[Rfam]
A member of the RNA family "Small nucleolar RNA psi28S-3316" from Scaptodrosophila lebanonensis, 136 nucleotides long. By type it is an H/ACA-box small nucleolar RNA. Rfam describes the family as follows. psi28S-3316 is a member of the H/ACA class of snoRNA. This family is responsible for guiding the modification of uridine 3316 in Drosophila 28S rRNA to pseudouridine. Taxonomically the source falls in Scaptodrosophila (Eukaryota, Bilateria, Pancrustacea, Schizophora).
RNA sequence: UGCACCUAAAAGCGUUUUCUUGUCCACUCUUUUAAUAUGUGCUUGAAAAUCGUAGAUGUGUGCUAAAGUAAUCGUCACAGUAGCAAGAGAUUUGAAUUUUAAACCAAAAUCAAAUCCAAUUAAACUGCGCUCAUGU
Numbered sequence: 001u002g003c004a005c006c007u008a009a010a011a012g013c014g015u016u017u018u019c020u021u022g023u024c025c026a027c028u029c030u031u032u033u034a035a036u037a038u039g040u041g042c043u044u045g046a047a048a049a050u051c052g053u054a055g056a057u058g059u060g061u062g063c064u065a066a067a068g069u070a071a072u073c074g075u076c077a078c079a080g081u082a083g084c085a086a087g088a089g090a091u092u093u094g095a096a097u098u099u100u101a102a103a104c105c106a107a108a109a110u111c112a113a114a115u116c117c118a119a120u121u122a123a124a125c126u127g128c129g130c131u132c133a134u135g136u
Stems, first nucleotide, its partner, number of pairs: 002063004006058001012053003015049005022040002076129001078127004085121002089117001090115004096110004